[Rfam]
RNA sequence: UUUUCCCUGCGGUGUCCGCAAAGGCAUACAUUCCUUUGAACCAAUAAGUUCGCUUAAGGUUGCCGGGAGUAGCAGUGGGCGCGAGCGUCUCUCUUGAGAAGCACCCGAAACUGCCCGAGGUAACCACCUUGUCAGCAAGGUUCAAGCGGAUUCAGCCGAAACGGCAUCUGCGGGGAAUCC
Numbered sequence: 001u002u003u004u005c006c007c008u009g010c011g012g013u014g015u016c017c018g019c020a021a022a023g024g025c026a027u028a029c030a031u032u033c034c035u036u037u038g039a040a041c042c043a044a045u046a047a048g049u050u051c052g053c054u055u056a057a058g059g060u061u062g063c064c065g066g067g068a069g070u071a072g073c074a075g076u077g078g079g080c081g082c083g084a085g086c087g088u089c090u091c092u093c094u095u096g097a098g099a100a101g102c103a104c105c106c107g108a109a110a111c112u113g114c115c116c117g118a119g120g121u122a123a124c125c126a127c128c129u130u131g132u133c134a135g136c137a138a139g140g141u142u143c144a145a146g147c148g149g150a151u152u153c154a155g156c157c158g159a160a161a162c163g164g165c166a167u168c169u170g171c172g173g174g175g176a177a178u179c180c
Stems, first nucleotide, its partner, number of pairs: 003177009012167004017163002032150003035146001037144006058125003062121003067116001069115001072114005081102002086098001090097001
RNA: 6S / SsrS RNA
Organism: Neisseria sp. oral taxon 014